[Rfam]
RNA sequence: UCUUGCUGUAGCCCCCUUGAGGGAAACACUUUCUGUUGUGUGAAAGAAGAGAAAGUGCUUCCCUUUAGAGAGUUACUGUUUGAGA
Numbered sequence: 001u002c003u004u005g006c007u008g009u010a011g012c013c014c015c016c017u018u019g020a021g022g023g024a025a026a027c028a029c030u031u032u033c034u035g036u037u038g039u040g041u042g043a044a045a046g047a048a049g050a051g052a053a054a055g056u057g058c059u060u061c062c063c064u065u066u067a068g069a070g071a072g073u074u075a076c077u078g079u080u081u082g083a084g085a
Stems, first nucleotide, its partner, number of pairs: 001083002005079002008076005014070001016068001019065007027057007036050002